[Rfam]
RNA sequence: UUUGGGCGUACAACGACGAGGACGUGUCCUCAACGUAGAGCUCAGGGAAAUGAACCUCACUAACAGCAAACUAUUAAGGUUUGGAAAAGUGAAAAAUAAAGCGUUGGGUAGAGUUUGGUAGGGUAUAUUCAGAUAUGCAGCCGAAGAAGUCAGACCCA
Numbered sequence: 001u002u003u004g005g006g007c008g009u010a011c012a013a014c015g016a017c018g019a020g021g022a023c024g025u026g027u028c029c030u031c032a033a034c035g036u037a038g039a040g041c042u043c044a045g046g047g048a049a050a051u052g053a054a055c056c057u058c059a060c061u062a063a064c065a066g067c068a069a070a071c072u073a074u075u076a077a078g079g080u081u082u083g084g085a086a087a088a089g090u091g092a093a094a095a096a097u098a099a100a101g102c103g104u105u106g107g108g109u110a111g112a113g114u115u116u117g118g119u120a121g122g123g124u125a126u127a128u129u130c131a132g133a134u135a136u137g138c139a140g141c142c143g144a145a146g147a148a149g150u151c152a153g154a155c156c157c158a
Stems, first nucleotide, its partner, number of pairs: 003044005011038001013036003018031005046056002057092005067083005105158005111151002114148003121141001123138006